[Rfam]
RNA: c-di-AMP riboswitch aptamer (ydaO/yuaA leader)
Nucleotides: 170
Stems, first nucleotide, its partner, number of pairs: 004154004011030001013028001031149006041089001090134003098110004113128004
Number, partner (000 for none) and nucleotide at each position: 001000g002000c003000g004154c005153g006152c007151c008000a009000a010000c011030c012000g013028u014000c015000c016000a017000g018000u019000c020000c021000c022000a023000g024000g025000g026000c027000a028013g029000g030011g031149g032148u033147g034146g035145g036144g037000g038000a039000a040000c041089c042000a043000c044000u045000u046000c047000c048000g049000g050000c051000g052000c053000g054000c055000g056000a057000c058000g059000g060000c061000c062000c063000a064000c065000g066000a067000g068000g069000g070000c071000c072000u073000g074000u075000c076000g077000g078000a079000g080000c081000g082000c083000g084000c085000c086000u087000c088000c089041g090134g091133g092132g093000u094000g095000a096000a097000g098110c099109c100108g101107c102000g103000a104000a105000c106000c107101g108100c109099g110098g111000c112000c113128g114127g115126g116125c117000a118000c119000u120000c121000g122000a123000u124000c125116g126115c127114c128113c129000g130000a131000a132092c133091c134090c135000g136000a137000c138000a139000g140000c141000u142000c143000a144036c145035c146034u147033c148032g149031c150000c151007g152006g153005c154004g155000g156000u157000g158000a159000u160000c161000g162000g163000g164000a165000g166000a167000u168000c169000a170000u